[Rfam]
RNA sequence: CUGUGUGCCUGGCUUGUUUUAAGUUGCCUGUGAUAGUUGAUUAUAACACAGGCAGCUAAAGCAAGUCUGGGAAGCAG
Dot-bracket structure: ..((.(.(..((((((((((.(((((((((.(..............).)))))))))))))))))))..).).))..
mir-1788 microRNA precursor family: a 77-nucleotide RNA sequence from Aquarana catesbeiana.
Rfam 15.1 lists 504 matches to the family in 475 species.
The source organism's lineage runs through Eukaryota, Chordata, Vertebrata, Gnathostomata and Aquarana.
Its family is annotated with miRNA-mediated post-transcriptional gene silencing and RISC complex in the Gene Ontology.
The base pairs follow the family's consensus structure, which was predicted with RNAalifold.